[Rfam]
RNA sequence: CCGUUGCCUGGGCGGCUCCCCGUGGAGAGAACCAGGAUGUGUAGGCCGGUAGAGCACAGCGACUACCCAUCACCGGCAGCC
Numbered sequence: 001c002c003g004u005u006g007c008c009u010g011g012g013c014g015g016c017u018c019c020c021c022g023u024g025g026a027g028a029g030a031a032c033c034a035g036g037a038u039g040u041g042u043a044g045g046c047c048g049g050u051a052g053a054g055c056a057c058a059g060c061g062a063c064u065a066c067c068c069a070u071c072a073c074c075g076g077c078a079g080c081c
Stems, first nucleotide, its partner, number of pairs: 001015004007036005017026003038058004045077005

Rfam assigns this 81-nucleotide RNA sequence from Kerstersia gyiorum to the family "Proteo-phage-1 RNA". Rfam classes the family as a small RNA. The base pairs follow the family's consensus structure, which is taken from published work. NCBI's taxonomy places the organism under Bacteria, Pseudomonadati, Burkholderiales, Alcaligenaceae, Kerstersia.